[Rfam]
RNA: 6S / SsrS RNA
Organism: Caldalkalibacillus thermarum
RNA sequence: AGAGUCCUGAGUUGUACGUGGUUUACGGAAGUUUUGAGCCAACACCAACACAAAGGGAGUCCGGAGUCUUCUUGUGGAGCAUAAGCCUCUAUCUGGAGAGGACAUGUGAAGCAAGGAGCAGGACACCCACCUGCCGAGACAGGGAUUCAAAACCAUGUAAAUCACGGCAAAUUUGGGGCCUCU
Numbered sequence: 001a002g003a004g005u006c007c008u009g010a011g012u013u014g015u016a017c018g019u020g021g022u023u024u025a026c027g028g029a030a031g032u033u034u035u036g037a038g039c040c041a042a043c044a045c046c047a048a049c050a051c052a053a054a055g056g057g058a059g060u061c062c063g064g065a066g067u068c069u070u071c072u073u074g075u076g077g078a079g080c081a082u083a084a085g086c087c088u089c090u091a092u093c094u095g096g097a098g099a100g101g102a103c104a105u106g107u108g109a110a111g112c113a114a115g116g117a118g119c120a121g122g123a124c125a126c127c128c129a130c131c132u133g134c135c136g137a138g139a140c141a142g143g144g145a146u147u148c149a150a151a152a153c154c155a156u157g158u159a160a161a162u163c164a165c166g167g168c169a170a171a172u173u174u175g176g177g178g179c180c181u182c183u
Base pairs, nucleotide, nucleotide: 002181004179005178006177007176008175009174010173011172012170013169014168015167017166018165019164031153032152033151034150035149036148037147039144040143055128056127057126059124060123061122062121064119069117070116071115072114073113074112075111081105082104086101087100088099089098090097